[Rfam]
RNA sequence: UGCUGGUGCCCUUCAUUCCACCGGAAUCUGUAGAGGCAAAAACCAGAUUUCAGUGUAAUGAAGCCCAUCAGACA
Numbered sequence: 001u002g003c004u005g006g007u008g009c010c011c012u013u014c015a016u017u018c019c020a021c022c023g024g025a026a027u028c029u030g031u032a033g034a035g036g037c038a039a040a041a042a043c044c045a046g047a048u049u050u051c052a053g054u055g056u057a058a059u060g061a062a063g064c065c066c067a068u069c070a071g072a073c074a
Base pairs, nucleotide, nucleotide: 011063012062013061014060015059016058019055020054021053023051024050025049026048028046029045030044
Shown here is a 74-nucleotide RNA sequence from Gopherus agassizii, a member of the family "mir-205 microRNA precursor family". The match comes from Rfam's covariance-model search (77 bits). The source organism's lineage runs through Eukaryota, Teleostomi, Amniota, Archelosauria and Gopherus. The base pairs follow the family's consensus structure, which was predicted with RNAalifold. The family has 44 seed sequences and 1,154 matches in Rfam 15.1.